[Rfam]
RNA sequence: UCCCCUGCUUUUCCUCCCUGAGCAGGAGCCUUACCGUGAUGACAGCGAUGAGGCUUUCGAGCCCCGGCUGAUGGCCGGGGCUUUUUUUAU
Numbered sequence: 001u002c003c004c005c006u007g008c009u010u011u012u013c014c015u016c017c018c019u020g021a022g023c024a025g026g027a028g029c030c031u032u033a034c035c036g037u038g039a040u041g042a043c044a045g046c047g048a049u050g051a052g053g054c055u056u057u058c059g060a061g062c063c064c065c066g067g068c069u070g071a072u073g074g075c076c077g078g079g080g081c082u083u084u085u086u087u088u089a090u
Stems, first nucleotide, its partner, number of pairs: 004026006028054006061081008
Shown here is a 90-nucleotide RNA from Piscinibacter sp. HJYY11, a member of the family "Burkholderia RNA 7 (anti-hemB)". Taxonomically the source falls in Piscinibacter (Bacteria, Pseudomonadati, Burkholderiales, Sphaerotilaceae). The family has 26 seed sequences and 479 matches in Rfam 15.1. On this family, see Weinberg et al., Nucleic Acids Res 2007: "Identification of 22 candidate structured RNAs in bacteria using the CMfinder comparative genomics pipeline". Rfam describes the family as follows. This RNA motif was identified by computational search in b-proteobacteria Burkholderia. The family's consensus secondary structure is taken from published work. It scores 61 bits against the family's covariance model.